[Rfam]
RNA sequence: AUCGUUCAUCUCCCCCACCCGUUAACUCAACUGGCCGUUUGUCCAGUUAUUGGUUAACGUUCUGAGGAAGACGGAAGUAGGGACCCAUGCCCGAAGGAACGCGCC
Numbered sequence: 001a002u003c004g005u006u007c008a009u010c011u012c013c014c015c016c017a018c019c020c021g022u023u024a025a026c027u028c029a030a031c032u033g034g035c036c037g038u039u040u041g042u043c044c045a046g047u048u049a050u051u052g053g054u055u056a057a058c059g060u061u062c063u064g065a066g067g068a069a070g071a072c073g074g075a076a077g078u079a080g081g082g083a084c085c086c087a088u089g090c091c092c093g094a095a096g097g098a099a100c101g102c103g104c105c
Base pairs, nucleotide, nucleotide: 003101004100005099006098007097009071010070011069013067074102080092081091082090
This 105-nucleotide RNA from Limnospira maxima belongs to the Rfam family "Glutamine riboswitch aptamer (glnA leader)". Gene Ontology term of the family: glutamine binding. Rfam's curators put it in the seed alignment. NCBI's taxonomy places the organism under Bacteria, Oscillatoriophycideae, Oscillatoriales, Limnospira, Limnospira maxima. For this family Rfam cites "Bacterial aptamers that selectively bind glutamine" (Ames and Breaker, RNA Biol, 2011).